[Rfam]
Nucleotides: 094
Base pairs, nucleotide, nucleotide: 006083007082008081009080010079018075020073021072022071023070024069026067027066028065029064030063032061036053037052038051039050040049
Number, partner (000 for none) and nucleotide at each position: 001000g002000c003000c004000c005000a006083u007082c008081u009080g010079u011000g012000u013000g014000u015000a016000g017000a018075u019000a020073g021072u022071g023070u024069u025000c026067a027066g028065u029064a030063c031000c032061a033000a034000u035000g036053a037052c038051a039050g040049g041000c042000a043000u044000g045000u046000u047000c048000a049040u050039c051038u052037g053036u054000g055000u056000g057000u058000a059000g060000a061032u062000a063030g064029u065028g066027u067026u068000c069024a070023g071022u072021a073020c074000c075018a076000a077000g078000g079010a080009c081008a082007g083006g084000c085000a086000u087000g088000u089000u090000u091000a092000c093000c094000u
mir-2060 microRNA precursor family: a 94-nucleotide sequence from Branchiostoma floridae. The match comes from Rfam's covariance-model search (71 bits). Lineage of the source: Eukaryota > Bilateria > Deuterostomia > Cephalochordata > Branchiostoma.